[Rfam]
RNA sequence: AGAAAAAAAACCCUGCAAAGCAGGGCUCUUCUUAUACUAGCAUGUACUAGUAAGAAGGCAAAGGGAGAGGAGAAACCGGAGGAAGAACUUAUGGGGAAACGUAAGUCUUCUCCGCGG
Numbered sequence: 001a002g003a004a005a006a007a008a009a010a011c012c013c014u015g016c017a018a019a020g021c022a023g024g025g026c027u028c029u030u031c032u033u034a035u036a037c038u039a040g041c042a043u044g045u046a047c048u049a050g051u052a053a054g055a056a057g058g059c060a061a062a063g064g065g066a067g068a069g070g071a072g073a074a075a076c077c078g079g080a081g082g083a084a085g086a087a088c089u090u091a092u093g094g095g096g097a098a099a100c101g102u103a104a105g106u107c108u109u110c111u112c113c114g115c116g117g
Base pairs, nucleotide, nucleotide: 011025012024013023014022015021016020026065027064028063029062030061035052036051037050038049039048040047077114078113079112080111082110083109084108085107087106088105089104090103091102
Rfam assigns this 117-nucleotide RNA sequence from Bacillus thuringiensis to the family "ylbH leader". The family's RNA type in Rfam is cis-regulatory leader. The source organism's lineage runs through Bacteria, Bacillati, Caryophanales, Bacillus thuringiensis and [Bacillus thuringiensis] serovar konkukian. From the family's description: This family is a putative regulatory RNA structure that is found upstream of the ylbH gene in B. subtilis and related low GC Gram-positive bacteria. Gene Ontology term of the family: regulation of gene expression. It is one of the family's seed sequences.